[Rfam]
RNA sequence: AAAAACCGCAGAGGUGCGGUUUUCAAGAGUAAACGCGUGUAUCGUGAUUGCCAAAAUCCUAAGCCGCGUCAAAAGGGAAAACCGCCGAAGGCAGCGCGCGGCAAGCGCCGCCUGGCUGCAACGCUGAAAGGCUUGCGGCUGUCGCGUCCGUCGUGGCGCGUUGCGCUGCGGAAGGU
Numbered sequence: 001a002a003a004a005a006c007c008g009c010a011g012a013g014g015u016g017c018g019g020u021u022u023u024c025a026a027g028a029g030u031a032a033a034c035g036c037g038u039g040u041a042u043c044g045u046g047a048u049u050g051c052c053a054a055a056a057u058c059c060u061a062a063g064c065c066g067c068g069u070c071a072a073a074a075g076g077g078a079a080a081a082c083c084g085c086c087g088a089a090g091g092c093a094g095c096g097c098g099c100g101g102c103a104a105g106c107g108c109c110g111c112c113u114g115g116c117u118g119c120a121a122c123g124c125u126g127a128a129a130g131g132c133u134u135g136c137g138g139c140u141g142u143c144g145c146g147u148c149c150g151u152c153g154u155g156g157c158g159c160g161u162u163g164c165g166c167u168g169c170g171g172a173a174g175g176u
Base pairs, nucleotide, nucleotide: 006171007170008169009168010167011166016085017084018083019082020081021080022079023078024077033069034068035067036066037065089113090112091111092110094108095107096106097105114140115139116138117137118136119135120134121133124130143160144159145158146157147156148155

The record is a 176-nucleotide RNA sequence from Ruthenibacterium lactatiformans, which matches "Lysine riboswitch aptamer" in Rfam. Rfam links the family to the GO term lysine biosynthetic process. The literature on the family includes a 2003 paper in Cell by Mandal et al., "Riboswitches Control Fundamental Biochemical Pathways in Bacillus subtilis and Other Bacteria". It scores 88 bits against the family's covariance model.